Rfam assigns this 122-nucleotide RNA sequence from Larsenimonas rhizosphaerae to the family "Ribosomal S15 leader". The literature on the family includes a 1996 paper in Biochimie by Benard et al., "Pseudoknot and translational control in the expression of the S15 ribosomal protein". Gene Ontology term of the family: regulation of translation, ncRNA-mediated. The family is grouped with related families in Rfam's "Ribosomal Protein S15 Leader clan".
RNA sequence: CGGGGAGACUGCAAAUAUGCGUGGUCUCCAACAUUUAUGCAAAAUGCAUAUUAGAGGAAGUAAUCAUGGCUCUUACAGCUGAACAGAAAGCUGAAAUCGUCAAGGAAUUCGGCGCGUCUGAA
Numbered sequence: 001c002g003g004g005g006a007g008a009c010u011g012c013a014a015a016u017a018u019g020c021g022u023g024g025u026c027u028c029c030a031a032c033a034u035u036u037a038u039g040c041a042a043a044a045u046g047c048a049u050a051u052u053a054g055a056g057g058a059a060g061u062a063a064u065c066a067u068g069g070c071u072c073u074u075a076c077a078g079c080u081g082a083a084c085a086g087a088a089a090g091c092u093g094a095a096a097u098c099g100u101c102a103a104g105g106a107a108u109u110c111g112g113c114g115c116g117u118c119u120g121a122a
Stems, first nucleotide, its partner, number of pairs: 007026006052075002056071002